[Rfam]
RNA: Small nucleolar RNA Me28S-Gm3113
RNA sequence: GGUUUUUGUGAUGACAUAGCUAUUUUACCUUGGGACACCUAUGAAAUGCCUUGAUUAGCGUAAACGUCAAUAUCUGAUAAAU
Numbered sequence: 001g002g003u004u005u006u007u008g009u010g011a012u013g014a015c016a017u018a019g020c021u022a023u024u025u026u027a028c029c030u031u032g033g034g035a036c037a038c039c040u041a042u043g044a045a046a047u048g049c050c051u052u053g054a055u056u057a058g059c060g061u062a063a064a065c066g067u068c069a070a071u072a073u074c075u076g077a078u079a080a081a082u
Stems, first nucleotide, its partner, number of pairs: 002082004